[Rfam]
RNA sequence: UGGCGCCCAACGUGGCUUGGAUACUGGAGACAACGUGAGGGACACGACAAAAAAAGAAGGGGUGCGCACCCGCUCAAAUAGUUCGGAGACGUCGCGGUAGCCUGCUGUGACUGAGCCGACAGGUAAGUUGGUCAUCAAUCAUGGGGCAAGAAUUAAGUCAGCAUCAAAAGUAUGUGAUGCAGUUAAGAGAAGUGCUACAGGCAAGAGGAGUAAAGGUUAAAACUGAGGAUUUAUUUCAUUUCUUUGAUUUUGUAAAGGACAUUUGUCCUU
Numbered sequence: 001u002g003g004c005g006c007c008c009a010a011c012g013u014g015g016c017u018u019g020g021a022u023a024c025u026g027g028a029g030a031c032a033a034c035g036u037g038a039g040g041g042a043c044a045c046g047a048c049a050a051a052a053a054a055a056g057a058a059g060g061g062g063u064g065c066g067c068a069c070c071c072g073c074u075c076a077a078a079u080a081g082u083u084c085g086g087a088g089a090c091g092u093c094g095c096g097g098u099a100g101c102c103u104g105c106u107g108u109g110a111c112u113g114a115g116c117c118g119a120c121a122g123g124u125a126a127g128u129u130g131g132u133c134a135u136c137a138a139u140c141a142u143g144g145g146g147c148a149a150g151a152a153u154u155a156a157g158u159c160a161g162c163a164u165c166a167a168a169a170g171u172a173u174g175u176g177a178u179g180c181a182g183u184u185a186a187g188a189g190a191a192g193u194g195c196u197a198c199a200g201g202c203a204a205g206a207g208g209a210g211u212a213a214a215g216g217u218u219a220a221a222a223c224u225g226a227g228g229a230u231u232u233a234u235u236u237c238a239u240u241u242c243u244u245u246g247a248u249u250u251u252g253u254a255a256a257g258g259a260c261a262u263u264u265g266u267c268c269u270u
Stems, first nucleotide, its partner, number of pairs: 006029001008027001012024003034046003083123002085120001090115001093109005129149001131147002135144003154197002157193002205245006214232005255270006

Shown here is a 270-nucleotide RNA from Nannospalax galili, a member of the family "Mason-Pfizer monkey virus packaging signal". Rfam describes the family as follows. This family represents a group of sequences that are related to the Mason-Pfizer monkey virus (MPMV) packaging signal. The packaging signal is located in the 5' UTR and is required for specific RNA encapsidation. The base pairs follow the family's consensus structure, which was predicted with PFOLD. Its family is annotated with viral genome packaging in the Gene Ontology. It is annotated as a cis-regulatory element.